Background
Shown here is an 83-nucleotide RNA from Anolis carolinensis, a member of the family "mir-184 microRNA precursor family". Rfam links the family to the GO terms RISC complex and gene silencing by miRNA.
RNA sequence: CCGCUCACGUCCCCUUAUCACUUUUCCAGCCAGCUUUCUUGUCAUAACCGUUGGACGGAGAACUGAUAAGGGUUUGUGGGUGA
Dot-bracket structure: ...........(((((((((.((((((..((.....................))..)))))).)))))))))...........
The literature on the family includes a 2005 paper in Genes Dev by Chen et al., "The developmental miRNA profiles of zebrafish as determined by small RNA cloning".